[Rfam]
A member of the RNA family "Glycine riboswitch aptamer" from Allomesorhizobium alhagi, 88 nucleotides long.
It scores 65 bits against the family's covariance model.
RNA sequence: UACCUGUUUGCGGGAGAGAGCAGCGAGAGCUGCCGCCGAAGGGGAAAUCGCCCGAAAUCUCUCAGGCAAAAAGAACCGUAGACGGGAA
Numbered sequence: 001u002a003c004c005u006g007u008u009u010g011c012g013g014g015a016g017a018g019a020g021c022a023g024c025g026a027g028a029g030c031u032g033c034c035g036c037c038g039a040a041g042g043g044g045a046a047a048u049c050g051c052c053c054g055a056a057a058u059c060u061c062u063c064a065g066g067c068a069a070a071a072a073g074a075a076c077c078g079u080a081g082a083c084g085g086g087a088a
Base pairs, nucleotide, nucleotide: 006083007082008081009080010079011078012077013076020033021032022031023030035067036066037065038063039062042061043060044059048055049054